DUF3800-VI RNA: a 51-nucleotide RNA. It is one of the family's seed sequences.
RNA sequence: UCGCCGGGAGUGCGUCACACUGCACGCUGGGACUGAGGUCCCACCCGGCGU
Numbered sequence: 001u002c003g004c005c006g007g008g009a010g011u012g013c014g015u016c017a018c019a020c021u022g023c024a025c026g027c028u029g030g031g032a033c034u035g036a037g038g039u040c041c042c043a044c045c046c047g048g049c050g051u
Stems, first nucleotide, its partner, number of pairs: 002050007010025005028043005